Record summary:
This 89-nucleotide RNA sequence from Eurypyga helias belongs to the Rfam family "mir-2131 microRNA precursor family". The family has 2 seed sequences and 319 matches in Rfam 15.1.
[Rfam]
Nucleotides: 089
Stems, first nucleotide, its partner, number of pairs: 001089003005085005011079005017074006026067004031062008041052001
Number, partner (000 for none) and nucleotide at each position: 001089u002088c003087u004000u005085g006084u007083g008082g009081c010000u011079u012078c013077c014076a015075u016000g017074c018073a019072g020071a021070a022069g023000u024000g025000c026067a027066c028065g029064g030000a031062a032061a033060c034059a035058g036057c037056u038055g039000u040000u041052u042000g043000c044000u045000a046000u047000u048000g049000c050000u051000a052041a053000c054000u055038u056037g057036g058035c059034u060033g061032u062031u063000a064029c065028u066027g067026u068000u069022c070021u071020u072019c073018u074017g075015g076014u077013g078012g079011g080000u081009g082008c083007u084006g085005c086000g087003g088002g089001a
About this RNA: Rfam links the family to the GO terms RISC complex and miRNA-mediated post-transcriptional gene silencing.